[Rfam]
RNA sequence: UAAUGCCGAAUGCCGAAUUCCAUCGAACAUGGAAACGGGGGAACCAUUUCUGGGUGAAUUGAUUUUGGGCAUCAUGCCGCAGACAGCGGAUGCCGGAUAAAUCAUAGGGAACCUUCAACCGAACCCCACAGCUAACCUCGUAGGCUCUGGAAGGAGCACAU
Dot-bracket structure: ...........(((...((((((.....))))))((((((...........(((.....((((((.................................))))))..((..........))...))).........)))))).)))................
RNA: c-di-AMP riboswitch aptamer (ydaO/yuaA leader)
Organism: Paenibacillaceae bacterium GAS479